[Rfam]
RNA sequence: GUUUGAUAAAGGCAAACUUAUUGAAAGAUAAGGACGCAAAGCCACGAGUCUAAGGUGAUUAGCUAUGAUAGUCGGGUUACCAAA
Numbered sequence: 001g002u003u004u005g006a007u008a009a010a011g012g013c014a015a016a017c018u019u020a021u022u023g024a025a026a027g028a029u030a031a032g033g034a035c036g037c038a039a040a041g042c043c044a045c046g047a048g049u050c051u052a053a054g055g056u057g058a059u060u061a062g063c064u065a066u067g068a069u070a071g072u073c074g075g076g077u078u079a080c081c082a083a084a
Stems, first nucleotide, its partner, number of pairs: 012037002017032006040078004045074003048069003055063002